Overview
Shown here is a 130-nucleotide RNA sequence, a member of the family "ALIL pseudoknot". The family's RNA type in Rfam is cis-regulatory element.

RNA sequence: AGCUUUUUUCGUAGCGGCGGAGCUCACUGGCAACCACGUUGCGUAAACUGAAGUGAUGGUGGACUACAUCGAUUUAAAUAAGGAAAAGCAUGGGGUCGAGUCGAUCUGCAAAGUAUUGCCGAUAGCCCCA
Numbered sequence: 001a002g003c004u005u006u007u008u009u010c011g012u013a014g015c016g017g018c019g020g021a022g023c024u025c026a027c028u029g030g031c032a033a034c035c036a037c038g039u040u041g042c043g044u045a046a047a048c049u050g051a052a053g054u055g056a057u058g059g060u061g062g063a064c065u066a067c068a069u070c071g072a073u074u075u076a077a078a079u080a081a082g083g084a085a086a087a088g089c090a091u092g093g094g095g096u097c098g099a100g101u102c103g104a105u106c107u108g109c110a111a112a113g114u115a116u117u118g119c120c121g122a123u124a125g126c127c128c129c130a
Stems, first nucleotide, its partner, number of pairs: 017044003091130005102125001105122002108119004